[Rfam]
RNA sequence: GGAGGGGAUGUGAUCCUGGUGGACACCUCGGGCUUCAAACCCGAUGGGGCGGUAGGUGACUACUUGCCCGGAAGGUUCGAUUCCUUCCCCCUUCC
Numbered sequence: 001g002g003a004g005g006g007g008a009u010g011u012g013a014u015c016c017u018g019g020u021g022g023a024c025a026c027c028u029c030g031g032g033c034u035u036c037a038a039a040c041c042c043g044a045u046g047g048g049g050c051g052g053u054a055g056g057u058g059a060c061u062a063c064u065u066g067c068c069c070g071g072a073a074g075g076u077u078c079g080a081u082u083c084c085u086u087c088c089c090c091c092u093u094c095c
Base pairs, nucleotide, nucleotide: 001094002093003092004091005090006089007087010026011025012024014023015022016021028044029043030042031041032040047069048068049067050066051065072086073085074084075083
RNA: Selenocysteine transfer RNA